Acido-Lenti-1 RNA: a 45-nucleotide sequence from Chryseobacterium sp. SC28. By type it is a small RNA.

RNA sequence: CAUCGGGUUGUACCCGAUGCUGUGUUAUUUCGCCACUUCGUGGCU
Number, nucleotide and partner (000 for none) at each position: 001c019002a018003u017004c016005g015006g014007g013008u012009u000010g000011u000012a008013c007014c006015c005016g004017a003018u002019g001020c000021u000022g000023u000024g000025u000026u000027a000028u000029u000030u000031c000032g044033c043034c042035a041036c040037u000038u000039c000040g036041u035042g034043g033044c032045u000
A search with the family's covariance model found it, with a score of 38 bits.